[Rfam]
RNA sequence: AAGCACUUGAUACUAACCGAGCCAUCCGUAUCCCAGGUCCUGUGCCCAGGGCUAAGGUACACCUUGUGAUUGCUGGGUCCAAAAAGUGCAACAUUAAAAUAAGCCAUGAAGUGUUUAAGCUCAGUGUAUGAAGGAGGACACUGGGUUAUAGCUCAGAGGCACAGAA
Numbered sequence: 001a002a003g004c005a006c007u008u009g010a011u012a013c014u015a016a017c018c019g020a021g022c023c024a025u026c027c028g029u030a031u032c033c034c035a036g037g038u039c040c041u042g043u044g045c046c047c048a049g050g051g052c053u054a055a056g057g058u059a060c061a062c063c064u065u066g067u068g069a070u071u072g073c074u075g076g077g078u079c080c081a082a083a084a085a086g087u088g089c090a091a092c093a094u095u096a097a098a099a100u101a102a103g104c105c106a107u108g109a110a111g112u113g114u115u116u117a118a119g120c121u122c123a124g125u126g127u128a129u130g131a132a133g134g135a136g137g138a139c140a141c142u143g144g145g146u147u148a149u150a151g152c153u154c155a156g157a158g159g160c161a162c163a164g165a166a
Stems, first nucleotide, its partner, number of pairs: 003089006016078003020074003024070003028060005036053006103160003124139002127136001129134001141156006
Annotation:
The record is a 166-nucleotide RNA from Bucorvus abyssinicus, which matches "Small Cajal body specific RNA 1" in Rfam. Pairs were carried over by alignment from the consensus structure, which was predicted with RNAalifold. Rfam classes the family as a small Cajal body RNA.